Repression of heat shock gene expression (ROSE) element: a 98-nucleotide RNA from Oricola cellulosilytica. It is annotated as an RNA thermoregulator. From the family's description: This family represents a 5' UTR cis-regulatory element found in heat shock mRNAs and is known as the ROSE (repression of heat shock gene expression) element. The ROSE element is a negative regulator of heat shock gene expression. The secondary structure is thought to be regulated by temperature. This regulation blocks access to the ribosome binding site under normal conditions. The literature on the family includes a 2001 paper in Nucleic Acids Res by Nocker et al., "A mRNA-based thermosensor controls expression of rhizobial heat shock genes". The base pairs follow the family's consensus structure, which is taken from published work.
RNA sequence: CCGGUCGCCGACUCGGGGCCGGUCCAAAGCUACGAGGCCAUCACCGCCUCGCAUCACUUGUACCCAUGUUGCUCAAAAGGAGGAUGUGGCUAUGAGAA
Numbered sequence: 001c002c003g004g005u006c007g008c009c010g011a012c013u014c015g016g017g018g019c020c021g022g023u024c025c026a027a028a029g030c031u032a033c034g035a036g037g038c039c040a041u042c043a044c045c046g047c048c049u050c051g052c053a054u055c056a057c058u059u060g061u062a063c064c065c066a067u068g069u070u071g072c073u074c075a076a077a078a079g080g081a082g083g084a085u086g087u088g089g090c091u092a093u094g095a096g097a098a
Stems, first nucleotide, its partner, number of pairs: 001022006008016002029055001031053001033051006057096006064089007072082003